The family of this 85-nucleotide RNA sequence from Bacillus oleivorans is "c-di-GMP-I riboswitch aptamer".
RNA sequence: AAGAGUAAAGGGCAAACUCUCCGAAAGGUUAGGACGCAAAGCUGAGGGUCUAAGGUUAAAUAACUAUGAUCGCCUGGCUGCCAAA
Numbered sequence: 001a002a003g004a005g006u007a008a009a010g011g012g013c014a015a016a017c018u019c020u021c022c023g024a025a026a027g028g029u030u031a032g033g034a035c036g037c038a039a040a041g042c043u044g045a046g047g048g049u050c051u052a053a054g055g056u057u058a059a060a061u062a063a064c065u066a067u068g069a070u071c072g073c074c075u076g077g078c079u080g081c082c083a084a085a
Stems, first nucleotide, its partner, number of pairs: 012037002017032002021028002040079004045075003048070003055064003
Lineage of the source: Bacteria > Bacillati > Caryophanales > Bacillaceae > Bacillus. Pairs were carried over by alignment from the consensus structure, which is taken from published work.